RNA sequence: GGAGGCGGCGACGCCCCCCCGACUUGAGGCUAGCGCAAGUUAGCCUGUCGCCUCCGCACCCCACACUUCCAAGGCCUUAAGGCGGACCCUUGCGGAUCCGCC
Numbered sequence: 001g002g003a004g005g006c007g008g009c010g011a012c013g014c015c016c017c018c019c020c021g022a023c024u025u026g027a028g029g030c031u032a033g034c035g036c037a038a039g040u041u042a043g044c045c046u047g048u049c050g051c052c053u054c055c056g057c058a059c060c061c062c063a064c065a066c067u068u069c070c071a072a073g074g075c076c077u078u079a080a081g082g083c084g085g086a087c088c089c090u091u092g093c094g095g096a097u098c099c100g101c102c
Stems, first nucleotide, its partner, number of pairs: 001055010012021002028045007081102006088095002
This 102-nucleotide RNA sequence from Caulobacter sp. belongs to the Rfam family "Cauldobacter sRNA CC3552". The base pairs follow the family's consensus structure, which was predicted with RNAalifold. By type it is a small RNA.